Shown here is an 81-nucleotide RNA from Pipistrellus kuhlii, a member of the family "mir-574 microRNA precursor family". It scores 84 bits against the family's covariance model. Pairs were carried over by alignment from the consensus structure, which was predicted with RNAalifold.

[Rfam]
RNA sequence: AGGUCUGAAGAGAUAAGCAGGUUCUGAUCUGUAGCCUCUUUGGUAGCUGUUGAUCAGCACUUGCCUUUCUCUUUCUUUCUG
Numbered sequence: 001a002g003g004u005c006u007g008a009a010g011a012g013a014u015a016a017g018c019a020g021g022u023u024c025u026g027a028u029c030u031g032u033a034g035c036c037u038c039u040u041u042g043g044u045a046g047c048u049g050u051u052g053a054u055c056a057g058c059a060c061u062u063g064c065c066u067u068u069c070u071c072u073u074u075c076u077u078u079c080u081g
Stems, first nucleotide, its partner, number of pairs: 008073006015066001017064004022059001024057006032049004
Dot-bracket structure: .......((((((.(.((((.(.((((((..((((..........))))..)))))).).)))).).))))))........